Description
mir-14 microRNA precursor family: a 63-nucleotide RNA from Diatraea saccharalis. The family's consensus secondary structure was predicted with RNAalifold. The source organism's lineage runs through Eukaryota, Mandibulata, Pancrustacea, Neolepidoptera and Diatraea. On this family, see Li et al., BMC Genomics 2009: "Direct sequencing and expression analysis of a large number of miRNAs in Aedes aegypti and a multi-species survey of novel mosquito miRNAs".

[Rfam]
RNA sequence: UGUCGGGGGGAGAAACUGACUUGACUUUGCUACAUAUCAGUCAGUCUUUUUCUCUCUCCUAUA
Numbered sequence: 001u002g003u004c005g006g007g008g009g010g011a012g013a014a015a016c017u018g019a020c021u022u023g024a025c026u027u028u029g030c031u032a033c034a035u036a037u038c039a040g041u042c043a044g045u046c047u048u049u050u051u052c053u054c055u056c057u058c059c060u061a062u063a
Stems, first nucleotide, its partner, number of pairs: 001063003005059004010054004015049001018046004024041003